[Rfam]
This 92-nucleotide RNA from Mycobacterium dioxanotrophicus belongs to the Rfam family "Glycine riboswitch aptamer".
Pairs were carried over by alignment from the consensus structure.
RNA sequence: UGACGCACUGUGGGAGAACCUCCGUUGUUCGGAGGCGCCGUAGGAGCAACUCCUCCCCGGGAAUCUCUCAGGCCCAAUACCGCAGUGUCGAG
Number, nucleotide and partner (000 for none) at each position: 001u000002g000003a000004c000005g000006c087007a086008c085009u084010g083011u082012g081013g080014g000015a000016g000017a000018a000019c035020c034021u033022c032023c000024g000025u000026u000027g000028u000029u000030c000031g000032g022033a021034g020035g019036c000037g073038c072039c071040g069041u000042a000043g000044g067045a066046g065047c000048a000049a000050c060051u059052c000053c000054u000055c000056c000057c000058c000059g051060g050061g000062a000063a000064u000065c046066u045067c044068u000069c040070a000071g039072g038073c037074c000075c000076a000077a000078u000079a000080c013081c012082g011083c010084a009085g008086u007087g006088u000089c000090g000091a000092g000